MIR8565 microRNA precursor family: a 153-nucleotide sequence from Amborella trichopoda. The base pairs follow the family's consensus structure, which was predicted with RNAalifold. NCBI's taxonomy places the organism under Eukaryota, Viridiplantae, Magnoliopsida, Amborellales, Amborella.
RNA sequence: CCUACACCUGCGUGUGUAGGACCCCAAAAGAUUACUAUUAAAUUUGAUACAGAUCUCUAAAAAAAUUAUCAUAUAGGUGUGGGACUGAUUUUUAUAGAGAUCUGUGUCAAAUUUAAUGGUGAUCCUUUUGGGUCCUACACACAUGGGUGUAGG
Numbered sequence: 001c002c003u004a005c006a007c008c009u010g011c012g013u014g015u016g017u018a019g020g021a022c023c024c025c026a027a028a029a030g031a032u033u034a035c036u037a038u039u040a041a042a043u044u045u046g047a048u049a050c051a052g053a054u055c056u057c058u059a060a061a062a063a064a065a066u067u068a069u070c071a072u073a074u075a076g077g078u079g080u081g082g083g084a085c086u087g088a089u090u091u092u093u094a095u096a097g098a099g100a101u102c103u104g105u106g107u108c109a110a111a112u113u114u115a116a117u118g119g120u121g122a123u124c125c126u127u128u129u130g131g132g133u134c135c136u137a138c139a140c141a142c143a144u145g146g147g148u149g150u151a152g153g
Stems, first nucleotide, its partner, number of pairs: 002152009012142002015139010026128003030124003034120026061093008069082005